About this RNA: This 150-nucleotide sequence from Trifolium subterraneum belongs to the Rfam family "small nucleolar RNA snoR127". The organism belongs to Trifolium, within Eukaryota. The family has 3 seed sequences and 273 matches in Rfam 15.1.
[Rfam]
RNA sequence: CUGGAAUGAUGCGAUUUAGCCAAAUCAGACAUUAAUGUGCUCCAUGAGGCAACUGACAUUAUCGGUUUGGAUCAUGUCGAUGACCCUCGUGUUGAAGCGCAUUUCUCUGAUGAUAAACAUGGAGAUUGGGUUUUUAUAUUCCUGACCAGA
Number, nucleotide and partner (000 for none) at each position: 001c149002u148003g147004g146005a000006a000007u000008g000009a000010u000011g000012c000013g000014a000015u000016u000017u000018a000019g000020c000021c000022a000023a000024a000025u000026c000027a000028g000029a000030c000031a000032u000033u000034a000035a000036u000037g000038u000039g000040c000041u000042c000043c000044a000045u000046g000047a000048g000049g000050c000051a000052a000053c000054u000055g000056a000057c000058a000059u000060u000061a000062u000063c000064g000065g000066u000067u000068u000069g000070g000071a000072u000073c000074a000075u000076g000077u000078c000079g000080a000081u000082g000083a000084c000085c000086c000087u000088c000089g000090u000091g000092u000093u000094g000095a000096a000097g000098c000099g000100c000101a000102u000103u000104u000105c000106u000107c000108u000109g000110a000111u000112g000113a000114u000115a000116a000117a000118c000119a000120u000121g000122g000123a000124g000125a000126u000127u000128g000129g000130g000131u000132u000133u000134u000135u000136a000137u000138a000139u000140u000141c000142c000143u000144g000145a000146c004147c003148a002149g001150a000
It scores 110 bits against the family's covariance model.